This 67-nucleotide sequence from Nothobranchius furzeri belongs to the Rfam family "mir-338 microRNA precursor family". A reference for the family is Meiri et al. (2010), "Discovery of microRNAs and other small RNAs in solid tumors", Nucleic Acids Res. A search with the family's covariance model found it, with a score of 72 bits. Its family is annotated with RISC complex and miRNA-mediated post-transcriptional gene silencing in the Gene Ontology.
[Rfam]
RNA sequence: CCUGCAACAACAUCCUGCUGCUGCCUGAGUAUCUGACACACUCCAGCAUCAGUGAUUUUGUUGCUGG
Dot-bracket structure: .....(((((.((((((.(((((....................))))).))).))).))))).....
Notes
Taxonomically the source falls in Nothobranchius (Eukaryota, Vertebrata, Percomorphaceae, Ovalentaria). The family's consensus secondary structure was predicted with RNAalifold.